[Rfam]
RNA sequence: CGAUCCGAGAGGCGCUGCAACGGACAACGGAGUCCGCCACGCUCGGAUCCGGUGUGUUGACGUAAGGGCGCCUCCUGAGA
Numbered sequence: 001c002g003a004u005c006c007g008a009g010a011g012g013c014g015c016u017g018c019a020a021c022g023g024a025c026a027a028c029g030g031a032g033u034c035c036g037c038c039a040c041g042c043u044c045g046g047a048u049c050c051g052g053u054g055u056g057u058u059g060a061c062g063u064a065a066g067g068g069c070g071c072c073u074c075c076u077g078a079g080a
Stems, first nucleotide, its partner, number of pairs: 002049007021036005
RNA: SAH (S-adenosyl-L-homocysteine) riboswitch aptamer
Organism: Actinoplanes cyaneus